[Rfam]
RNA sequence: CUCAUCACGGGAGCAGAGAAGACAUCCUGACGGCACGGUCACUGGCAGGGGAUGUUGGAGCCAAUAGUGAGACCGGCCCGUGCGGAC
Numbered sequence: 001c002u003c004a005u006c007a008c009g010g011g012a013g014c015a016g017a018g019a020a021g022a023c024a025u026c027c028u029g030a031c032g033g034c035a036c037g038g039u040c041a042c043u044g045g046c047a048g049g050g051g052a053u054g055u056u057g058g059a060g061c062c063a064a065u066a067g068u069g070a071g072a073c074c075g076g077c078c079c080g081u082g083c084g085g086a087c
Base pairs, nucleotide, nucleotide: 002086003085006082007081008080009079010078011077013061014060021056022055023054024053025052026051027050028049037074038073039070040069041068042067043066
A member of the RNA family "c-di-GMP-II-GAG riboswitch aptamer" from Deinococcus deserti, 87 nucleotides long. A reference for the family is Weinberg et al. (2017), "Bioinformatic analysis of riboswitch structures uncovers variant classes with altered ligand specificity", Proc Natl Acad Sci U S A. The family's consensus secondary structure is taken from published work. The organism belongs to Deinococcus deserti, within Bacteria.